Shown here is a 74-nucleotide RNA from a Sphingomonadaceae bacterium, a member of the family "tRNA".
Rfam links the family to the GO term triplet codon-amino acid adaptor activity.
It scores 58 bits against the family's covariance model.
NCBI's taxonomy places the organism under Bacteria, Pseudomonadota, Alphaproteobacteria, Sphingomonadales, Sphingomonadaceae.
RNA sequence: CGGAGCGUGGCGCAGCCUGGUAGCGCACUUCGCUGGGGGUGAAGGGGUCGCAGGUUCGAAUCCUGUCGCUCCGA
Numbered sequence: 001c002g003g004a005g006c007g008u009g010g011c012g013c014a015g016c017c018u019g020g021u022a023g024c025g026c027a028c029u030u031c032g033c034u035g036g037g038g039g040u041g042a043a044g045g046g047g048u049c050g051c052a053g054g055u056u057c058g059a060a061u062c063c064u065g066u067c068g069c070u071c072c073g074a
Stems, first nucleotide, its partner, number of pairs: 001073007010026004028044005050066005